[Rfam]
Shown here is a 78-nucleotide RNA from Alligator sinensis, a member of the family "Mammalian CPEB3 ribozyme". Pairs were carried over by alignment from the consensus structure, which is taken from published work.
RNA sequence: AGAUCACAAGUUGGAAGCCAUAGCAAAUGCACUGACAGUGCGGCCCUGUCAGAUUCCAGCAAAUCUGCAAAUUCUGUU
Dot-bracket structure: ............[[..[[[..((((.(.(((.......)))]]]]]...((((((......)))))).....).))))
Numbered sequence: 001a002g003a004u005c006a007c008a009a010g011u012u013g014g015a016a017g018c019c020a021u022a023g024c025a026a027a028u029g030c031a032c033u034g035a036c037a038g039u040g041c042g043g044c045c046c047u048g049u050c051a052g053a054u055u056c057c058a059g060c061a062a063a064u065c066u067g068c069a070a071a072u073u074c075u076g077u078u
Stems, first nucleotide, its partner, number of pairs: 013046002017044003022078004027073001029041003050067006